[Rfam]
RNA sequence: CGGUUAUGUCUCCUUUCCGUUAUCAACGGAGGCACUCGACCAUCCUGUGGGAGGAGCCAGCACUCCUCCUUAGACACACUAGUUGUCAAAAGGGUGGUGUGAGGGUGGGUUAGAUGCCUG
Numbered sequence: 001c002g003g004u005u006a007u008g009u010c011u012c013c014u015u016u017c018c019g020u021u022a023u024c025a026a027c028g029g030a031g032g033c034a035c036u037c038g039a040c041c042a043u044c045c046u047g048u049g050g051g052a053g054g055a056g057c058c059a060g061c062a063c064u065c066c067u068c069c070u071u072a073g074a075c076a077c078a079c080u081a082g083u084u085g086u087c088a089a090a091a092g093g094g095u096g097g098u099g100u101g102a103g104g105g106u107g108g109g110u111u112a113g114a115u116g117c118c119u120g
Stems, first nucleotide, its partner, number of pairs: 001019003007034007035103004039098008049070008073087004106120005